[Rfam]
The record is a 90-nucleotide RNA sequence from Thermoanaerobacter sp. X514, which matches "pan motif" in Rfam. Pairs were carried over by alignment from the consensus structure, which is taken from published work. The sequence is in the family's curated seed alignment. NCBI's taxonomy places the organism under Bacteria, Bacillati, Clostridia, Thermoanaerobacterales, Thermoanaerobacter.
RNA sequence: GUGGUGGUAUCUUCAUAGAACCACACACUUCAUAAAAAUUCAAUAGGGCUCAUUUCGGCCCCGCCAGGAUCACAAGACCGGGACGGGAGA
Numbered sequence: 001g002u003g004g005u006g007g008u009a010u011c012u013u014c015a016u017a018g019a020a021c022c023a024c025a026c027a028c029u030u031c032a033u034a035a036a037a038a039u040u041c042a043a044u045a046g047g048g049c050u051c052a053u054u055u056c057g058g059c060c061c062c063g064c065c066a067g068g069a070u071c072a073c074a075a076g077a078c079c080g081g082g083a084c085g086g087g088a089g090a
Stems, first nucleotide, its partner, number of pairs: 001028003004024005010019002061086003064082002067079002070077002